[Rfam]
RNA sequence: GUACACAUGAUGAGGAUUGCGGUAUGAGCAGCAACAAUGAUACUGUAAACGCUUUCUGAUGUA
Numbered sequence: 001g002u003a004c005a006c007a008u009g010a011u012g013a014g015g016a017u018u019g020c021g022g023u024a025u026g027a028g029c030a031g032c033a034a035c036a037a038u039g040a041u042a043c044u045g046u047a048a049a050c051g052c053u054u055u056c057u058g059a060u061g062u063a
Stems, first nucleotide, its partner, number of pairs: 002063004012055004020045006
Dot-bracket structure: .((((......((((....((((((..............))))))......))))....))))
RNA: Small nucleolar RNA Z39
Organism: Cephalopterus ornatus